[Rfam]
RNA sequence: CAAGGCCUAUGAUGAUUUAAAUAUUUGCCUACAUUGUCUGAUUGCUCUAGUUGAAGAAUCUUUUGUACUAAGACUGAGGCCUUG
Numbered sequence: 001c002a003a004g005g006c007c008u009a010u011g012a013u014g015a016u017u018u019a020a021a022u023a024u025u026u027g028c029c030u031a032c033a034u035u036g037u038c039u040g041a042u043u044g045c046u047c048u049a050g051u052u053g054a055a056g057a058a059u060c061u062u063u064u065g066u067a068c069u070a071a072g073a074c075u076g077a078g079g080c081c082u083u084g
Base pairs, nucleotide, nucleotide: 001084002083004081005080006079007078